[Rfam]
RNA sequence: GGACAGACCUCUGGAGAGACCUGGCAAGACCGGGCGCCGAAGGAGCAAGCCUGCCAGCCGGCAGGUCAAUCUCUCAGGCAAAAGGACAGGGAGCGACAG
Numbered sequence: 001g002g003a004c005a006g007a008c009c010u011c012u013g014g015a016g017a018g019a020c021c022u023g024g025c026a027a028g029a030c031c032g033g034g035c036g037c038c039g040a041a042g043g044a045g046c047a048a049g050c051c052u053g054c055c056a057g058c059c060g061g062c063a064g065g066u067c068a069a070u071c072u073c074u075c076a077g078g079c080a081a082a083a084g085g086a087c088a089g090g091g092a093g094c095g096a097c098a099g
Stems, first nucleotide, its partner, number of pairs: 006094001009091005020034004036079003039075002043073003049066007

Rfam assigns this 99-nucleotide RNA sequence from Carboxydocella thermautotrophica to the family "Glycine riboswitch aptamer". Rfam describes the family as follows. This family represents the bacterial glycine riboswitch. The match comes from Rfam's covariance-model search (69 bits). Lineage of the source: Bacteria > Bacillati > Clostridia > Eubacteriales > Carboxydocella thermautotrophica.